Overview: The family of this 68-nucleotide sequence from Hucho hucho is "Small nucleolar RNA SNORD18". The family is grouped with related families in Rfam's "SNORD18 clan". Rfam classes the family as a C/D-box small nucleolar RNA. Rfam links the family to the GO terms nucleolus and RNA processing. NCBI's taxonomy places the organism under Eukaryota, Craniata, Clupeocephala, Salmonidae, Hucho. The literature on the family includes a 1993 paper in Nucleic Acids Res by Prislei et al., "Two different snoRNAs are encoded in introns of amphibian and human L1 ribosomal protein genes".

[Rfam]
RNA sequence: AAGCCAUGAUGAGGUUCCACUUCAGGUCCGUGUUUCUGAAUCCUGAUUUUAAUUGGAGUCCUGAGCUU
Numbered sequence: 001a002a003g004c005c006a007u008g009a010u011g012a013g014g015u016u017c018c019a020c021u022u023c024a025g026g027u028c029c030g031u032g033u034u035u036c037u038g039a040a041u042c043c044u045g046a047u048u049u050u051a052a053u054u055g056g057a058g059u060c061c062u063g064a065g066c067u068u
Stems, first nucleotide, its partner, number of pairs: 001068004